[Rfam]
RNA sequence: CUUUGAGAAUCGAAUAUACCGCAGAAAGCAGGCACCGCAAGGUUUAAUCGUAAGGCCCGCCGAGGUACGAGGUUUUUGUUUGCAUACAAUGUUUGCAAGUCCUUAUACCCGCGCGGUAUAAGGACUUUUUUAAUGCUAAC
Numbered sequence: 001c002u003u004u005g006a007g008a009a010u011c012g013a014a015u016a017u018a019c020c021g022c023a024g025a026a027a028g029c030a031g032g033c034a035c036c037g038c039a040a041g042g043u044u045u046a047a048u049c050g051u052a053a054g055g056c057c058c059g060c061c062g063a064g065g066u067a068c069g070a071g072g073u074u075u076u077u078g079u080u081u082g083c084a085u086a087c088a089a090u091g092u093u094u095g096c097a098a099g100u101c102c103u104u105a106u107a108c109c110c111g112c113g114c115g116g117u118a119u120a121a122g123g124a125c126u127u128u129u130u131u132a133a134u135g136c137u138a139a140c
Stems, first nucleotide, its partner, number of pairs: 028060002031057003034043003099125010
The family of this 140-nucleotide sequence from Candidatus Borkfalkia ceftriaxoniphila is "Ribosomal protein L10 leader".
Taxonomically the source falls in Candidatus Borkfalkia (Bacteria, Bacillati, Bacillota, Christensenellales).
The match comes from Rfam's covariance-model search (61 bits).
By type it is a cis-regulatory leader.